Shown here is a 101-nucleotide sequence from Lederbergia galactosidilytica, a member of the family "Purine riboswitch aptamer". Taxonomically the source falls in Lederbergia (Bacteria, Bacillota, Caryophanales, Bacillaceae).

RNA sequence: GGAAAAUUCGAAUAAACUAAGUGUAUAACCUCAAUAAUAUGGUUUGAGGGUCUCUACCAGGAACCAAUUAAAUCCUGAUUACAAAUAUUUCAUUUUGUAGU
Numbered sequence: 001g002g003a004a005a006a007u008u009c010g011a012a013u014a015a016a017c018u019a020a021g022u023g024u025a026u027a028a029c030c031u032c033a034a035u036a037a038u039a040u041g042g043u044u045u046g047a048g049g050g051u052c053u054c055u056a057c058c059a060g061g062a063a064c065c066a067a068u069u070a071a072a073u074c075c076u077g078a079u080u081a082c083a084a085a086u087a088u089u090u091c092a093u094u095u096u097g098u099a100g101u
Stems, first nucleotide, its partner, number of pairs: 018087002022083004029049006058077005

A search with the family's covariance model found it, with a score of 65 bits. The base pairs follow the family's consensus structure, which is taken from published work. A reference for the family is Mandal et al. (2003), "Riboswitches Control Fundamental Biochemical Pathways in Bacillus subtilis and Other Bacteria", Cell.